[Rfam]
RNA sequence: GACCGGCGGUGACAACGAGAGAGAGCACGCUGGUGCGGCCGUCACGGAGAUGUGGCCCGUGGCGGCGUACUUGCGUGCUCCCUCCCGUUGUCACUGUCCG
Numbered sequence: 001g002a003c004c005g006g007c008g009g010u011g012a013c014a015a016c017g018a019g020a021g022a023g024a025g026c027a028c029g030c031u032g033g034u035g036c037g038g039c040c041g042u043c044a045c046g047g048a049g050a051u052g053u054g055g056c057c058c059g060u061g062g063c064g065g066c067g068u069a070c071u072u073g074c075g076u077g078c079u080c081c082c083u084c085c086c087g088u089u090g091u092c093a094c095u096g097u098c099c100g
Stems, first nucleotide, its partner, number of pairs: 010093005016087002020083002023080001025078006032071005
RNA: MIR535 microRNA precursor family
Organism: Panicum miliaceum